[Rfam]
RNA sequence: GCUUAAUGAUGAUUCCUUUCAACCUGAGCAAAUUGUAGUUGGUCCUUCAUUUGCGCAGUUGAUGUUUCAAGACGGGACUGAAAGCAGC
Numbered sequence: 001g002c003u004u005a006a007u008g009a010u011g012a013u014u015c016c017u018u019u020c021a022a023c024c025u026g027a028g029c030a031a032a033u034u035g036u037a038g039u040u041g042g043u044c045c046u047u048c049a050u051u052u053g054c055g056c057a058g059u060u061g062a063u064g065u066u067u068c069a070a071g072a073c074g075g076g077a078c079u080g081a082a083a084g085c086a087g088c
Base pairs, nucleotide, nucleotide: 001085002084003083004082

Rfam assigns this 88-nucleotide sequence from Silurus meridionalis to the family "Small nucleolar RNA SNORD21". The family has 5 seed sequences and 566 matches in Rfam 15.1. It is annotated as a C/D-box small nucleolar RNA. The base pairs follow the family's consensus structure, which was predicted with PFOLD. Rfam links the family to the GO terms nucleolus and RNA processing. The literature on the family includes a 1994 paper in Nucleic Acids Res by Qu et al., "U21, a novel small nucleolar RNA with a 13 nt. complementarity to 28S rRNA, is encoded in an intron of ribosomal protein L5 gene in chicken and mammals".